[Rfam]
RNA sequence: GGCUUCAACAUCCCCGUGGGCUGGGCGCAGAGUUAAGCUGACGACGCGCAGUGAGUCCGCUGGAGCC
Numbered sequence: 001g002g003c004u005u006c007a008a009c010a011u012c013c014c015c016g017u018g019g020g021c022u023g024g025g026c027g028c029a030g031a032g033u034u035a036a037g038c039u040g041a042c043g044a045c046g047c048g049c050a051g052u053g054a055g056u057c058c059g060c061u062g063g064a065g066c067c
Stems, first nucleotide, its partner, number of pairs: 001067007013053001014051001016060007023052001025049004032042004
RNA: nadA riboswitch